Description
The family of this 91-nucleotide RNA sequence is "Glycine riboswitch aptamer". The match comes from Rfam's covariance-model search (52 bits). Gene Ontology term of the family: glycine biosynthetic process.
RNA sequence: AUGACGACAGCAGGAGAGACCCCAGCCGGCGGCAAACGGCAUGGGGCGCCGACGAAGUGAAUCUUUCAGGCGAAAGGACUGCUGCCCGACG
Numbered sequence: 001a002u003g004a005c006g007a008c009a010g011c012a013g014g015a016g017a018g019a020c021c022c023c024a025g026c027c028g029g030c031g032g033c034a035a036a037c038g039g040c041a042u043g044g045g046g047c048g049c050c051g052a053c054g055a056a057g058u059g060a061a062u063c064u065u066u067c068a069g070g071c072g073a074a075a076g077g078a079c080u081g082c083u084g085c086c087c088g089a090c091g
Stems, first nucleotide, its partner, number of pairs: 006086001008084006020046004048071003051067002055065003